[Rfam]
RNA sequence: GAAAAUACUUGUUUAACAGCUGAGUGAUUUAAAGCAAUCAAAUUCCUUUAGCUUUAAAGCAUGCAGCUGGUGAACAAGCUCUUGC
Numbered sequence: 001g002a003a004a005a006u007a008c009u010u011g012u013u014u015a016a017c018a019g020c021u022g023a024g025u026g027a028u029u030u031a032a033a034g035c036a037a038u039c040a041a042a043u044u045c046c047u048u049u050a051g052c053u054u055u056a057a058a059g060c061a062u063g064c065a066g067c068u069g070g071u072g073a074a075c076a077a078g079c080u081c082u083u084g085c
Stems, first nucleotide, its partner, number of pairs: 003083002008078008017069006024062003028058008
mir-1781 microRNA precursor family: an 85-nucleotide RNA from Rissa tridactyla. The source organism's lineage runs through Eukaryota, Amniota, Archelosauria, Laridae and Rissa.